[Rfam]
A member of the RNA family "mir-970 microRNA precursor family" from Megaselia scalaris, 73 nucleotides long.
Its family is annotated with RISC complex and miRNA-mediated post-transcriptional gene silencing in the Gene Ontology.
The source organism's lineage runs through Eukaryota, Eumetazoa, Endopterygota, Muscomorpha and Megaselia.
The base pairs follow the family's consensus structure, which was predicted with RNAalifold.
The match comes from Rfam's covariance-model search (71 bits).
RNA sequence: UUGUGAUAGCUAGCGUUUGGCUUAUUGGUAGUUAUGUUUGGAAUCUAUCAUAAGACACACGCGGCUAUUAUGG
Numbered sequence: 001u002u003g004u005g006a007u008a009g010c011u012a013g014c015g016u017u018u019g020g021c022u023u024a025u026u027g028g029u030a031g032u033u034a035u036g037u038u039u040g041g042a043a044u045c046u047a048u049c050a051u052a053a054g055a056c057a058c059a060c061g062c063g064g065c066u067a068u069u070a071u072g073g
Stems, first nucleotide, its partner, number of pairs: 001073006008066004013062003018057002021054002026050005